[Rfam]
RNA sequence: UCCGGCACUGAUUGUCCAAACGCAAUUCUUGUGUGUUUUUUGUCAAGAACUGUGUAUGGGCAUCUCUGCUUGG
Numbered sequence: 001u002c003c004g005g006c007a008c009u010g011a012u013u014g015u016c017c018a019a020a021c022g023c024a025a026u027u028c029u030u031g032u033g034u035g036u037u038u039u040u041u042g043u044c045a046a047g048a049a050c051u052g053u054g055u056a057u058g059g060g061c062a063u064c065u066c067u068g069c070u071u072g073g
Stems, first nucleotide, its partner, number of pairs: 002072001004070004010064003014061005021054004026049006